Record summary
The record is a 154-nucleotide RNA sequence from Vibrio cholerae, which matches "Vibrio RNA VqmR" in Rfam. From the family's description: Repress the expression of multiple mRNAs including the rtx (repeats in toxin) toxin genes and the vpsT, which is required for biofilm formation. In fact, VqmR which is highly conserved in vibrionaceae, was shown to strongly inhibit biofilm formation through the repression of vpsT gene and could be the link between biofilm formation and quorum sensing.
RNA sequence: CAGAGCAUGAGUUGCAUGACUGAUGCUUGGUAUCAAUAUGAUACCUCUGUGUGUUCAGCAGACCCUCGCUGGAUUCAUGGAACCUCUUCUACACGUCGACAAGAUAUGUUUCUUGUAUUUAUGCCAGCCCGUCUUCAGGCUGGCUUUUUUUCAU
Numbered sequence: 001c002a003g004a005g006c007a008u009g010a011g012u013u014g015c016a017u018g019a020c021u022g023a024u025g026c027u028u029g030g031u032a033u034c035a036a037u038a039u040g041a042u043a044c045c046u047c048u049g050u051g052u053g054u055u056c057a058g059c060a061g062a063c064c065c066u067c068g069c070u071g072g073a074u075u076c077a078u079g080g081a082a083c084c085u086c087u088u089c090u091a092c093a094c095g096u097c098g099a100c101a102a103g104a105u106a107u108g109u110u111u112c113u114u115g116u117a118u119u120u121a122u123g124c125c126a127g128c129c130c131g132u133c134u135u136c137a138g139g140c141u142g143g144c145u146u147u148u149u150u151u152c153a154u
Stems, first nucleotide, its partner, number of pairs: 005026004010021003029045006053074007099116006123144007
Dot-bracket structure: ....((((.(((......))).))))..((((((.....)))))).......(((((((........)))))))........................((((((......))))))......(((((((........)))))))..........
The literature on the family includes a 2015 paper in Proc Natl Acad Sci U S A by Papenfort et al., "Differential RNA-seq of Vibrio cholerae identifies the VqmR small RNA as a regulator of biofilm formation".